[Rfam]
RNA sequence: AAAGCAGGAUGCAAUUACAGUGCUUCAUUCUGUGGAAGGACUGCCAUUACCCUGCUGACAGCAACAUCCUGCUUCAGAGCAACAGCUUCUCACCUGUGUGGGAUAUAUAGUUUCUGUAGCAGGAACAACU
Numbered sequence: 001a002a003a004g005c006a007g008g009a010u011g012c013a014a015u016u017a018c019a020g021u022g023c024u025u026c027a028u029u030c031u032g033u034g035g036a037a038g039g040a041c042u043g044c045c046a047u048u049a050c051c052c053u054g055c056u057g058a059c060a061g062c063a064a065c066a067u068c069c070u071g072c073u074u075c076a077g078a079g080c081a082a083c084a085g086c087u088u089c090u091c092a093c094c095u096g097u098g099u100g101g102g103a104u105a106u107a108u109a110g111u112u113u114c115u116g117u118a119g120c121a122g123g124a125a126c127a128a129c130u
Stems, first nucleotide, its partner, number of pairs: 003056006018043004023038004067124007075116003085106001088103006
This 130-nucleotide RNA from Pangasianodon hypophthalmus belongs to the Rfam family "Small nucleolar RNA SNORA69".
U69 is a member of the H/ACA class of small nucleolar RNAs (snoRNAs) which act as guides in the the modification of uridines to pseudouridines.
The organism belongs to Pangasianodon, within Eukaryota.
The family's RNA type in Rfam is H/ACA-box small nucleolar RNA.
The base pairs follow the family's consensus structure, which was predicted with PFOLD.
Rfam links the family to the GO terms nucleolus and RNA processing.